[Rfam]
RNA sequence: CCUGUUCCGGCGCCGAACCUUGCCAACGGAGCAGGUGAAAACCCGUUGGCAAGGACGGAGGACCCACUUUCGGCAGCUGACAGAGGCUGCCUUGGGGUGAAGCCCCGUGCGGUACCGUCCACGAUGAAGCGGCCAUACUUCGCUCUCCAUCGCAGCGGGACUGCGCUGCCUGGGCCGAGUUGUAGAGCAUUGCGCAGACUCGAAUCCGACAGCUAACUCCGCAGGCGUUCAUCGAGAGGGCCU
Numbered sequence: 001c002c003u004g005u006u007c008c009g010g011c012g013c014c015g016a017a018c019c020u021u022g023c024c025a026a027c028g029g030a031g032c033a034g035g036u037g038a039a040a041a042c043c044c045g046u047u048g049g050c051a052a053g054g055a056c057g058g059a060g061g062a063c064c065c066a067c068u069u070u071c072g073g074c075a076g077c078u079g080a081c082a083g084a085g086g087c088u089g090c091c092u093u094g095g096g097g098u099g100a101a102g103c104c105c106c107g108u109g110c111g112g113u114a115c116c117g118u119c120c121a122c123g124a125u126g127a128a129g130c131g132g133c134c135a136u137a138c139u140u141c142g143c144u145c146u147c148c149a150u151c152g153c154a155g156c157g158g159g160a161c162u163g164c165g166c167u168g169c170c171u172g173g174g175c176c177g178a179g180u181u182g183u184a185g186a187g188c189a190u191u192g193c194g195c196a197g198a199c200u201c202g203a204a205u206c207c208g209a210c211a212g213c214u215a216a217c218u219c220c221g222c223a224g225g226c227g228u229u230c231a232u233c234g235a236g237a238g239g240g241c242c243u
Stems, first nucleotide, its partner, number of pairs: 011227004018054012056221005065094002095207003103174003177201004

Shown here is a 243-nucleotide sequence from Arthrobacter terrae, a member of the family "c-di-AMP riboswitch aptamer (ydaO/yuaA leader)". NCBI's taxonomy places the organism under Bacteria, Bacillati, Actinomycetes, Micrococcaceae, Arthrobacter.